[Rfam]
RNA sequence: AGCAUUCUGAAUCCGUGCUGAAAUUUCAUCAGAUACCAACCCAUUAUGGCUGAUCAGACUUCCAAGAUACGUGGAGUU
Numbered sequence: 001a002g003c004a005u006u007c008u009g010a011a012u013c014c015g016u017g018c019u020g021a022a023a024u025u026u027c028a029u030c031a032g033a034u035a036c037c038a039a040c041c042c043a044u045u046a047u048g049g050c051u052g053a054u055c056a057g058a059c060u061u062c063c064a065a066g067a068u069a070c071g072u073g074g075a076g077u078u
Stems, first nucleotide, its partner, number of pairs: 002077002005074002008071002011068003016064002020062003024058003028054003
Rfam assigns this 78-nucleotide sequence from Schistosoma curassoni to the family "mir-3492 microRNA precursor family". Rfam 15.1 lists 21,496 matches to the family in 13 species.